[Rfam]
The record is a 265-nucleotide sequence from Roseovarius aestuarii, which matches "Ruegeria trans44 sRNA" in Rfam. Lineage of the source: Bacteria > Alphaproteobacteria > Rhodobacterales > Roseobacteraceae > Roseovarius. It is annotated as a small RNA.
Nucleotides: 265
Base pairs, nucleotide, nucleotide: 001037002036003035004034005033006032007031008030009029010028012027013026014025015024016023017022055200056199057198058197059196060195064188065187066186067185068184069183070182071181072180073179074178077175078174079173080172081170082169083167086164087163088162089161091159092158093157094156096154097153098152101150102149103148109143110142111141113138114137115136121131122130123129202251204249205248206247207246219244220243225239226238227237228236229235252264253263254262
Number, partner (000 for none) and nucleotide at each position: 001037c002036a003035u004034c005033g006032c007031g008030a009029u010028g011000c012027u013026c014025u015024u016023c017022a018000a019000u020000c021000a022017u023016g024015g025014a026013g027012a028010c029009a030008u031007c032006g033005u034004g035003a036002u037001g038000a039000g040000g041000a042000u043000a044000c045000u046000u047000u048000c049000a050000a051000a052000a053000c054000g055200c056199c057198a058197g059196c060195u061000g062000a063000a064188g065187g066186a067185g068184u069183u070182g071181g072180u073179c074178u075000u076000g077175u078174a079173u080172u081170c082169g083167c084000c085000g086164c087163a088162a089161c090000a091159c092158a093157u094156u095000g096154c097153a098152c099000g100000c101150c102149u103148g104000g105000a106000a107000a108000a109143g110142g111141c112000a113138g114137g115136c116000c117000a118000a119000u120000u121131c122130c123129c124000u125000a126000a127000g128000c129123g130122g131121g132000u133000a134000c135000a136115g137114c138113u139000u140000g141111g142110c143109c144000c145000g146000a147000a148103c149102a150101g151000g152098g153097u154096g155000g156094g157093a158092u159091g160000g161089g162088u163087u164086g165000a166000a167083g168000a169082u170081g171000a172080a173079a174078u175077a176000c177000u178074g179073g180072a181071u182070u183069g184068g185067c186066u187065u188064c189000a190000a191000a192000c193000g194000a195060g196059g197058c198057u199056g200055g201000a202251c203000u204249g205248u206247c207246g208000a209000a210000c211000a212000a213000u214000c215000c216000u217000a218000c219244c220243c221000g222000a223000c224000a225239c226238u227237c228236c229235u230000g231000a232000c233000u234000a235229a236228g237227g238226a239225g240000c241000a242000a243220g244219g245000g246207u247206g248205a249204u250000c251202g252264a253263g254262c255000g256000u257000g258000c259000a260000c261000a262254g263253c264252u265000c